[Rfam]
RNA sequence: GCGGGGCUGCCCGACGCGUGAAGGCAUGUCACACCCCUGGGCCGAUAAGCACUUCCUAGGGAGCUGGCUCUGUUGUGGCCCUGGUCACAUUACCCGGCGCCCACCUGCACUAGCAGGUCCUGGAGGUUGAAAGACCCACGGUCAUGGUGGCUCCGCA
Numbered sequence: 001g002c003g004g005g006g007c008u009g010c011c012c013g014a015c016g017c018g019u020g021a022a023g024g025c026a027u028g029u030c031a032c033a034c035c036c037c038u039g040g041g042c043c044g045a046u047a048a049g050c051a052c053u054u055c056c057u058a059g060g061g062a063g064c065u066g067g068c069u070c071u072g073u074u075g076u077g078g079c080c081c082u083g084g085u086c087a088c089a090u091u092a093c094c095c096g097g098c099g100c101c102c103a104c105c106u107g108c109a110c111u112a113g114c115a116g117g118u119c120c121u122g123g124a125g126g127u128u129g130a131a132a133g134a135c136c137c138a139c140g141g142u143c144a145u146g147g148u149g150g151c152u153c154c155g156c157a
Stems, first nucleotide, its partner, number of pairs: 002155010013143003017140003034125001036123002039120005059102003063098005072091001074089006
The record is a 157-nucleotide RNA sequence from Acetobacter orientalis, which matches "6S / SsrS RNA" in Rfam. The literature on the family includes a 2000 paper in Cell by Wassarman and Storz, "6S RNA regulates E. coli RNA polymerase activity". About the family: E. coli 6S RNA was the first non coding RNA to be sequenced, but its function was unknown until recently. It is annotated as a non-coding RNA gene.